[Rfam]
RNA sequence: CGAGGAAAACAGACAGUCGCGUGGUUUGGCCGAAAGGCCUCUUCAUGAGGAAAGUCCGGGCUCCAUAGGGCAAGGAUAACGGGUAACGCCCGCCGAAGGCGACUUCAGGAAAAGUGCAACAGAGAUAUACCGCUGGUAAAUGGCUGGCUGAGGCCGGUGUCUGCCAGUAAGGGUGGAAAGGUGCGGUAAGAGCGCACCCGACGGCUGGGAACUGUCCGUCGCUGUAAACUCUAUCCGGAGCAACACCGGUAUGGGAGCAUAGAGGCUGGCCCGGCUGCUCCCGGGGUGGCUUGAGCGUACCGGCAACGAUACGCCUAGAUAGAUGACUGUCAAAUACAGAACCCGGCUUACAGUUUUGCUCGCAGU
Dot-bracket structure: ((((.(((((.(((((((.(((((...(((......)))...)))))....[[[.[[[[[((((....[[...(((((.((((.....)))).(((((....)))).)((...(((((...........(((((((((.(((...............))).)))))))..)).......((((((.......)))))).((((((.(....).).)))))..)))..)))))))))))))...((((.....((((((.....((((...]]))))))))))..))))......(((((.((....)).)))))..........)))))))..........]]]]]]]]...))))).))))....
RNA: Bacterial RNase P class A